RNA sequence: CCACCUGAGGAGCGCUGCAACGGGGUUCCCCGCCAGGCUCAGGUUCUGCAACGGCGCUCGCUGACU
Dot-bracket structure: ..((((((............((((....))))......))))))......................

A member of the RNA family "SAH (S-adenosyl-L-homocysteine) riboswitch aptamer" from Hyalangium minutum, 66 nucleotides long. The source organism's lineage runs through Bacteria, Myxococcia, Myxococcales, Cystobacterineae and Hyalangium.